The family of this 222-nucleotide RNA sequence from Hyphomonadaceae bacterium UBA1595 is "permuted transfer-messenger RNA". The source organism's lineage runs through Bacteria, Pseudomonadati, Alphaproteobacteria, Hyphomonadales and Hyphomonadaceae. It is annotated as a non-coding RNA gene.

RNA sequence: GGCGAUAAACGCGCAUAUAAUAAGCAGGCUGGACCGGGGUGCGAUUCCCCGCGGCUCCACCAUUUUCCCAAAUGCCACCUUCGGCACGCGGUGUUUUAUGGGGCCGAUAUAGGAUCGACAGAUGUCUAAAAAUGUUGCUUUUGCCCGCAUGGGUUACGUUAAAAGCCCGUUUUUACAAAUGCAAACGAUAAUUUUGCACAGGAUUAUGCUUUGGCUGCGUAA
Numbered sequence: 001g002g003c004g005a006u007a008a009a010c011g012c013g014c015a016u017a018u019a020a021u022a023a024g025c026a027g028g029c030u031g032g033a034c035c036g037g038g039g040u041g042c043g044a045u046u047c048c049c050c051g052c053g054g055c056u057c058c059a060c061c062a063u064u065u066u067c068c069c070a071a072a073u074g075c076c077a078c079c080u081u082c083g084g085c086a087c088g089c090g091g092u093g094u095u096u097u098a099u100g101g102g103g104c105c106g107a108u109a110u111a112g113g114a115u116c117g118a119c120a121g122a123u124g125u126c127u128a129a130a131a132a133u134g135u136u137g138c139u140u141u142u143g144c145c146c147g148c149a150u151g152g153g154u155u156a157c158g159u160u161a162a163a164a165g166c167c168c169g170u171u172u173u174u175a176c177a178a179a180u181g182c183a184a185a186c187g188a189u190a191a192u193u194u195u196g197c198a199c200a201g202g203a204u205u206a207u208g209c210u211u212u213g214g215c216u217g218c219g220u221a222a
Base pairs, nucleotide, nucleotide: 001145002144003143004142005141013135014134015133016132025124026123029121030120031119035051036050037049038048039047052106053105054104055103056102057101058100146158147157149155
From the family's description: Bacterial tmRNA, also known as 10Sa RNA or SsrA, is named for its dual tRNA and mRNA-like properties. Its role is to liberate the mRNA from a stalled ribosome.